[Rfam]
RNA sequence: UUCUUAUCGAGAGAGGUUGAGGGACUGGCCCUAUGACACCUCAGCAACCGCCAUGAUGAUUGGUAAGGUGCUAACUCCAGCAAGUUCACAAACGACUUGGGGGAUAAGAG
Numbered sequence: 001u002u003c004u005u006a007u008c009g010a011g012a013g014a015g016g017u018u019g020a021g022g023g024a025c026u027g028g029c030c031c032u033a034u035g036a037c038a039c040c041u042c043a044g045c046a047a048c049c050g051c052c053a054u055g056a057u058g059a060u061u062g063g064u065a066a067g068g069u070g071c072u073a074a075c076u077c078c079a080g081c082a083a084g085u086u087c088a089c090a091a092a093c094g095a096c097u098u099g100g101g102g103g104a105u106a107a108g109a110g
Stems, first nucleotide, its partner, number of pairs: 001110008013042005021031003025080004043072004048068002050064004076102001081099006
A member of the RNA family "SAM riboswitch aptamer (S box leader)" from Terrilactibacillus tamarindi, 110 nucleotides long. Lineage of the source: Bacteria > Bacillota > Bacilli > Caryophanales > Terrilactibacillus. Its family is annotated with regulation of gene expression in the Gene Ontology.